RNA sequence: ACGGAAGCCCGGGGAGGCCAAGGUCGAUCCGGAAGAGAAGGCUCGACCUCCCGAACCAGGCGACCUAGCACGGAUCCCGGUACCCACGCGGAGCCACAGCCGCGAAUAUGGCAGAAGCGUUGCGGGCCUGCGUAAUUGCGAAAAGCGGACGGAUUCGGCGGCCCUUUGGGUGGGGUCGCAGCCGGGGCGCAUCGCAAGAUCGCCGAGGCCACCCACGCAACCCCUUGUUGCACGCUUGGUAACUGAGUUCCGUGCUAGCGGGCGGCGAGCCGUAAUUUACGGAGCGUCGCCCGCUUUGCGUG
Numbered sequence: 001a002c003g004g005a006a007g008c009c010c011g012g013g014g015a016g017g018c019c020a021a022g023g024u025c026g027a028u029c030c031g032g033a034a035g036a037g038a039a040g041g042c043u044c045g046a047c048c049u050c051c052c053g054a055a056c057c058a059g060g061c062g063a064c065c066u067a068g069c070a071c072g073g074a075u076c077c078c079g080g081u082a083c084c085c086a087c088g089c090g091g092a093g094c095c096a097c098a099g100c101c102g103c104g105a106a107u108a109u110g111g112c113a114g115a116a117g118c119g120u121u122g123c124g125g126g127c128c129u130g131c132g133u134a135a136u137u138g139c140g141a142a143a144a145g146c147g148g149a150c151g152g153a154u155u156c157g158g159c160g161g162c163c164c165u166u167u168g169g170g171u172g173g174g175g176u177c178g179c180a181g182c183c184g185g186g187g188c189g190c191a192u193c194g195c196a197a198g199a200u201c202g203c204c205g206a207g208g209c210c211a212c213c214c215a216c217g218c219a220a221c222c223c224c225u226u227g228u229u230g231c232a233c234g235c236u237u238g239g240u241a242a243c244u245g246a247g248u249u250c251c252g253u254g255c256u257a258g259c260g261g262g263c264g265g266c267g268a269g270c271c272g273u274a275a276u277u278u279a280c281g282g283a284g285c286g287u288c289g290c291c292c293g294c295u296u297u298g299c300g301u302g
Stems, first nucleotide, its partner, number of pairs: 003065002007061003011057002016052002021049002025045003029041002066257009078245004084239003088235003093231002099112003119221006125210005130203003136197006145190003150184003154180001159178007258294010270282003
A member of the RNA family "Mycobacterium smegmatis small RNA 1" from Mycobacterium talmoniae, 302 nucleotides long. From the family's description: Mycobacterium smegmatis small RNA 1 is highly expressed during stationary phase of growth. Ms1 RNA directly interacts with RNA polymerase (RNAP), but in a different way than 6S, which is present in other bacteria. Its family is annotated with RNA polymerase binding in the Gene Ontology. A reference for the family is Hnilicova et al. (2014), "Ms1, a novel sRNA interacting with the RNA polymerase core in mycobacteria", Nucleic Acids Res. Pairs were carried over by alignment from the consensus structure, which was predicted with CMfinder.